The family of this 112-nucleotide RNA from Metabacillus lacus is "SAM riboswitch aptamer (S box leader)".
RNA sequence: CUCUUAUCGAGAGAGACCGAGGGAACAGGCCCGUUGACGUCCGGCAACCAUCAUGCAGCUGCUUGAAAUGGUGCUACAUCCUGCAGGCAUAAGUAUGUCUGAAAGAUAAGAG
Numbered sequence: 001c002u003c004u005u006a007u008c009g010a011g012a013g014a015g016a017c018c019g020a021g022g023g024a025a026c027a028g029g030c031c032c033g034u035u036g037a038c039g040u041c042c043g044g045c046a047a048c049c050a051u052c053a054u055g056c057a058g059c060u061g062c063u064u065g066a067a068a069u070g071g072u073g074c075u076a077c078a079u080c081c082u083g084c085a086g087g088c089a090u091a092a093g094u095a096u097g098u099c100u101g102a103a104a105g106a107u108a109a110g111a112g
Stems, first nucleotide, its partner, number of pairs: 001112008013042001015041003021032003026083004043075004048071002051066003079104001084101006

The family's consensus secondary structure is taken from published work.